[Rfam]
RNA sequence: CUGCCCGAGGAGCGUUGCAACGCUCGGCCUUGCCGAGCGUCAGGCUCGGGCCCCGGGCCGUAUCCACGGCGCGCCAUGCAACGACGCUCACCUGAC
Dot-bracket structure: ..((((((............((((((.......))))))......)))))).............................................
The family of this 96-nucleotide RNA from Variovorax sp. PBL-E5 is "SAH (S-adenosyl-L-homocysteine) riboswitch aptamer". The literature on the family includes a 2008 paper in Mol Cell by Wang et al., "Riboswitches that sense S-adenosylhomocysteine and activate genes involved in coenzyme recycling". The source organism's lineage runs through Bacteria, Pseudomonadati, Burkholderiales, Comamonadaceae and Variovorax.